[Rfam]
RNA sequence: AAAAAGUAGAAACCAGAAACUACUAAAAAAACGGGGAUAAAUCCGAAAAUCCAAAGAGUAGGAAAUUU
Dot-bracket structure: .....((((..........))))...........(((....[[......)))........]]......
Source information
The record is a 68-nucleotide RNA sequence, which matches "DUF805 RNA" in Rfam. Rfam's curators put it in the seed alignment.